[Rfam]
RNA: Small nucleolar RNA SNORD63
Organism: Rhynochetos jubatus
RNA sequence: GUGCCAUGAUGUAACUGUCAACACAUCAUUUCGAAGCAGAAUUGUGUGAAGACCUUUUGUAACUGAGCACC
Number, nucleotide and partner (000 for none) at each position: 001g070002u069003g068004c067005c000006a000007u000008g000009a000010u000011g000012u000013a000014a000015c000016u000017g000018u000019c000020a000021a000022c000023a000024c000025a000026u000027c000028a000029u000030u000031u000032c000033g000034a000035a000036g000037c000038a000039g000040a000041a000042u000043u000044g000045u000046g000047u000048g000049a000050a000051g000052a000053c000054c000055u000056u000057u000058u000059g000060u000061a000062a000063c000064u000065g000066a000067g004068c003069a002070c001071c000